Rfam assigns this 167-nucleotide RNA sequence from Pedosphaera parvula to the family "c-di-AMP riboswitch aptamer (ydaO/yuaA leader)". Gene Ontology terms of the family: regulation of gene expression and cyclic-di-AMP binding. Taxonomically the source falls in Pedosphaera parvula (Bacteria, Pseudomonadati, Verrucomicrobiota, Pedosphaerales).
RNA sequence: GUUAUGAAGCAGCCUAAGUUGGCCUUCCUUCCUGAAGGUCAACGCGGGGGAACCAGGUUCCUCAAAGCAAUUUGAGGAUGGGGCGUAAGAUUGCGGGUAACCGCGAUCAAGGUCACUUCCAGGACCGAGCCCGUCAGCUAACCUCGUCGGCAAUUGGAAGGGCGAUC
Numbered sequence: 001g002u003u004a005u006g007a008a009g010c011a012g013c014c015u016a017a018g019u020u021g022g023c024c025u026u027c028c029u030u031c032c033u034g035a036a037g038g039u040c041a042a043c044g045c046g047g048g049g050g051a052a053c054c055a056g057g058u059u060c061c062u063c064a065a066a067g068c069a070a071u072u073u074g075a076g077g078a079u080g081g082g083g084c085g086u087a088a089g090a091u092u093g094c095g096g097g098u099a100a101c102c103g104c105g106a107u108c109a110a111g112g113u114c115a116c117u118u119c120c121a122g123g124a125c126c127g128a129g130c131c132c133g134u135c136a137g138c139u140a141a142c143c144u145c146g147u148c149g150g151c152a153a154u155u156g157g158a159a160g161g162g163c164g165a166u167c
Stems, first nucleotide, its partner, number of pairs: 012151003018043010044147006054080002081132003089108006111126004